A member of the RNA family "drz-agam-1 ribozyme" from Hermetia illucens, 79 nucleotides long.

[Rfam]
RNA sequence: UACUACCAAACCCUAUCUCCACCUCCACGUGGUGACCGCUGGGACUUCUUUCUUAACGAAAAGCUGCAGACGGGGAAGG
Numbered sequence: 001u002a003c004u005a006c007c008a009a010a011c012c013c014u015a016u017c018u019c020c021a022c023c024u025c026c027a028c029g030u031g032g033u034g035a036c037c038g039c040u041g042g043g044a045c046u047u048c049u050u051u052c053u054u055a056a057c058g059a060a061a062a063g064c065u066g067c068a069g070a071c072g073g074g075g076a077a078g079g
Base pairs, nucleotide, nucleotide: 012079013078014077016075017074018073019072021033022032023031045066048063049062050061051060052058
The family's consensus secondary structure is taken from published work. The organism belongs to Hermetia, within Eukaryota.